[Rfam]
RNA sequence: GGCCUUCAAAUCCGCUGCGCACCCUCCUAUAUCGGGGGUGCCGGGUUCGCCCGGCUAUGGCGAUAAAUGAUGUCGUGGAAUAGAUGCAGCGGACCCGGGGGCAGUACCCGGCGGCUCCACCACAAAUCCCGGAUUUCCGGGGCUCGUGACGGGGCCGAACCAGGAUCGACGUGUAUUCAAAGACGAUGUUUUUGCCCGGCCUGAAUGCGCCGUUAAACCGUUCGAACCUACAAGUGCCAACGAUAACGAGGCGCUCGCGAUUGCCGCGUAACUGAGUCCUAACGGACGACGUUACAAGGCUUAAGCGCGGUUCGGUCCGCACCGGGCAACAGAAGCGGAAUCC
Numbered sequence: 001g002g003c004c005u006u007c008a009a010a011u012c013c014g015c016u017g018c019g020c021a022c023c024c025u026c027c028u029a030u031a032u033c034g035g036g037g038g039u040g041c042c043g044g045g046u047u048c049g050c051c052c053g054g055c056u057a058u059g060g061c062g063a064u065a066a067a068u069g070a071u072g073u074c075g076u077g078g079a080a081u082a083g084a085u086g087c088a089g090c091g092g093a094c095c096c097g098g099g100g101g102c103a104g105u106a107c108c109c110g111g112c113g114g115c116u117c118c119a120c121c122a123c124a125a126a127u128c129c130c131g132g133a134u135u136u137c138c139g140g141g142g143c144u145c146g147u148g149a150c151g152g153g154g155c156c157g158a159a160c161c162a163g164g165a166u167c168g169a170c171g172u173g174u175a176u177u178c179a180a181a182g183a184c185g186a187u188g189u190u191u192u193u194g195c196c197c198g199g200c201c202u203g204a205a206u207g208c209g210c211c212g213u214u215a216a217a218c219c220g221u222u223c224g225a226a227c228c229u230a231c232a233a234g235u236g237c238c239a240a241c242g243a244u245a246a247c248g249a250g251g252c253g254c255u256c257g258c259g260a261u262u263g264c265c266g267c268g269u270a271a272c273u274g275a276g277u278c279c280u281a282a283c284g285g286a287c288g289a290c291g292u293u294a295c296a297a298g299g300c301u302u303a304a305g306c307g308c309g310g311u312u313c314g315g316u317c318c319g320c321a322c323c324g325g326g327c328a329a330c331a332g333a334a335g336c337g338g339a340a341u342c343c
Base pairs, nucleotide, nucleotide: 040055041054042053043052044051059196060195061194062193063192070189071188072187073186074185075184076183085175086174087173089172090171091170095111096110097109098108099107112157113156114155115154116153117152118151197212198211199210200209202224203223204222206220207219308324309323310322311321314341316339317338318337319336

Rfam assigns this 343-nucleotide RNA from Rhizorhabdus wittichii to the family "Alphaproteobacteria transfer-messenger RNA".
The base pairs follow the family's consensus structure, which is taken from published work.
It is one of the family's seed sequences.
Lineage of the source: Bacteria > Pseudomonadota > Alphaproteobacteria > Rhizorhabdaceae > Rhizorhabdus wittichii.